The record is an 87-nucleotide RNA, which matches "GA-cis RNA" in Rfam. By type it is a small RNA. Rfam's curators put it in the seed alignment.
RNA sequence: AGAGGGAGGUGCAACACGAACAAAGUGAAUGUUUUUAAAUGCACCGACCGACUUGCCGACGAGCGAAGCGAGGGGGCGUUACCGAAA
Numbered sequence: 001a002g003a004g005g006g007a008g009g010u011g012c013a014a015c016a017c018g019a020a021c022a023a024a025g026u027g028a029a030u031g032u033u034u035u036u037a038a039a040u041g042c043a044c045c046g047a048c049c050g051a052c053u054u055g056c057c058g059a060c061g062a063g064c065g066a067a068g069c070g071a072g073g074g075g076g077c078g079u080u081a082c083c084g085a086a087a
Stems, first nucleotide, its partner, number of pairs: 008045005015031002020026001055077003060072001063069002
Dot-bracket structure: .......(((((..((...(.....)...)).........))))).........(((..(..((...))..)..)))..........